[Rfam]
Shown here is a 68-nucleotide RNA, a member of the family "nadA riboswitch". Pairs were carried over by alignment from the consensus structure, which is taken from published work. It is one of the family's seed sequences.

RNA sequence: GCUUUCAACAUCCCCGUUUCGAGCAACGUUGCCGAAUUUUGAGCGGCAGUUGUGUCGAGACUGAAGGC
Numbered sequence: 001g002c003u004u005u006c007a008a009c010a011u012c013c014c015c016g017u018u019u020c021g022a023g024c025a026a027c028g029u030u031g032c033c034g035a036a037u038u039u040u041g042a043g044c045g046g047c048a049g050u051u052g053u054g055u056c057g058a059g060a061c062u063g064a065a066g067g068c
Base pairs, nucleotide, nucleotide: 001068002067003066004065005064006063007062013054014052016061017060018059019058020057021056022055026050027049